[Rfam]
RNA sequence: UGACAACUGUAUUCGAGUGUGUGGAUAGAGUGCUGUAAUUUUCUAGCACCAUUCGAAUUCAGUGCUCG
Numbered sequence: 001u002g003a004c005a006a007c008u009g010u011a012u013u014c015g016a017g018u019g020u021g022u023g024g025a026u027a028g029a030g031u032g033c034u035g036u037a038a039u040u041u042u043c044u045a046g047c048a049c050c051a052u053u054c055g056a057a058u059u060c061a062g063u064g065c066u067c068g
Stems, first nucleotide, its partner, number of pairs: 001068003005063001007062003011058005017052003021049003026045004
RNA: mir-29 microRNA precursor family
Organism: Heliothis virescens